[Rfam]
RNA sequence: CACCCCCGUCACUGGGUAAAGAGGCGCCUGAUUGGUGGUGCCAGUCUUAUAUCAGGCGGGGGCAGAGCAGCCCAGUCCCUGUUCAUCCCAGCCCAACGCCCCGGGUAGUGGCCGCGGCUGGUUCAUGGCUCGGACACAUCG
Numbered sequence: 001c002a003c004c005c006c007c008g009u010c011a012c013u014g015g016g017u018a019a020a021g022a023g024g025c026g027c028c029u030g031a032u033u034g035g036u037g038g039u040g041c042c043a044g045u046c047u048u049a050u051a052u053c054a055g056g057c058g059g060g061g062g063c064a065g066a067g068c069a070g071c072c073c074a075g076u077c078c079c080u081g082u083u084c085a086u087c088c089c090a091g092c093c094c095a096a097c098g099c100c101c102c103g104g105g106u107a108g109u110g111g112c113c114g115c116g117g118c119u120g121g122u123u124c125a126u127g128g129c130u131c132g133g134a135c136a137c138a139u140c141g
Stems, first nucleotide, its partner, number of pairs: 003062006012055004019048003023042006080136005098129003105124001109120002
A member of the RNA family "Small nucleolar RNA SNORA48" from Ornithorhynchus anatinus, 141 nucleotides long. Gene Ontology terms of the family: RNA processing and nucleolus. The source organism's lineage runs through Eukaryota, Metazoa, Eumetazoa, Prototheria and Ornithorhynchus. It scores 77 bits against the family's covariance model. The snoRNA ACA 48 has been identified to guide pseudouridylation of the residue U3797 in the 28S rRNA subunit. Rfam 15.1 lists 2,109 matches to the family in 150 species. A reference for the family is Ofengand and Bakin (1997), "Mapping to nucleotide resolution of pseudouridine residues in large subunit ribosomal RNAs from representative eukaryotes, prokaryotes, archaebacteria, mitochondria and chloroplasts", J Mol Biol.